A member of the RNA family "mir-9/mir-79 microRNA precursor family" from Drosophila willistoni, 76 nucleotides long. The sequence is in the family's curated seed alignment. Rfam 15.1 lists 5,647 matches to the family in 934 species. Taxonomically the source falls in Sophophora (Eukaryota, Insecta, Aparaglossata, Muscomorpha). A reference for the family is Lagos-Quintana et al. (2001), "Identification of novel genes coding for small expressed RNAs", Science.
[Rfam]
RNA sequence: CUAUGUUGUCUUUGGUUAUCUAGCUGUAUGAGUGAUACAUAACGUCAUAAAGCUAGCUUACCGAAGUUAAUAUUAG
Numbered sequence: 001c002u003a004u005g006u007u008g009u010c011u012u013u014g015g016u017u018a019u020c021u022a023g024c025u026g027u028a029u030g031a032g033u034g035a036u037a038c039a040u041a042a043c044g045u046c047a048u049a050a051a052g053c054u055a056g057c058u059u060a061c062c063g064a065a066g067u068u069a070a071u072a073u074u075a076g
Stems, first nucleotide, its partner, number of pairs: 001076002003073002006070003010066007018058001020056006027049005